A member of the RNA family "6S / SsrS RNA", 174 nucleotides long.
The literature on the family includes a 2000 paper in Cell by Wassarman and Storz, "6S RNA regulates E. coli RNA polymerase activity".
[Rfam]
RNA sequence: AUUUCCCUGCACUGUUGGUGAUGAUCAGUGUGUGUUGAGCCAACUCUCAAAAAAAGGGUACCUUCUCUGUUUACUUAAGGAGGGUCAUUUUUUGACGUACCUGACGUGGAUAUGAGGCUGCCCACCUAUUUUAUAGGUUUAACUUUCCUGGUUACACGGCAGUGUGGGGAUUAU
Numbered sequence: 001a002u003u004u005c006c007c008u009g010c011a012c013u014g015u016u017g018g019u020g021a022u023g024a025u026c027a028g029u030g031u032g033u034g035u036u037g038a039g040c041c042a043a044c045u046c047u048c049a050a051a052a053a054a055a056g057g058g059u060a061c062c063u064u065c066u067c068u069g070u071u072u073a074c075u076u077a078a079g080g081a082g083g084g085u086c087a088u089u090u091u092u093u094g095a096c097g098u099a100c101c102u103g104a105c106g107u108g109g110a111u112a113u114g115a116g117g118c119u120g121c122c123c124a125c126c127u128a129u130u131u132u133a134u135a136g137g138u139u140u141a142a143c144u145u146u147c148c149u150g151g152u153u154a155c156a157c158g159g160c161a162g163u164g165u166g167g168g169g170a171u172u173a174u
Stems, first nucleotide, its partner, number of pairs: 004170012018157002034143001036141006056123003060119001062117004068112007079100001084096004
Dot-bracket structure: ...((((((((((((..((..............(.((((((..............(((.(.((((..(((((((....(....((((.....))))...).....))))))).)))).).)))............)))))).)............)).))))))))))))....

It is annotated as a non-coding RNA gene.